[Rfam]
RNA sequence: CGUCUAAAGCGCGACUGGCGCAUUGGGUGGGAGCGACCACCGGGGAGCGAAAAGCGGAGGCCGUACGCCUGGGUCUUCGCA
Numbered sequence: 001c002g003u004c005u006a007a008a009g010c011g012c013g014a015c016u017g018g019c020g021c022a023u024u025g026g027g028u029g030g031g032a033g034c035g036a037c038c039a040c041c042g043g044g045g046a047g048c049g050a051a052a053a054g055c056g057g058a059g060g061c062c063g064u065a066c067g068c069c070u071g072g073g074u075c076u077u078c079g080c081a
Stems, first nucleotide, its partner, number of pairs: 003053001005051001010049003015044002017069004027040004058076005
The family of this 81-nucleotide sequence from Streptosporangium saharense is "ZMP/ZTP riboswitch aptamer (pfl RNA motif)". It scores 50 bits against the family's covariance model. The family's consensus secondary structure is taken from published work. The organism belongs to Streptosporangium, within Bacteria.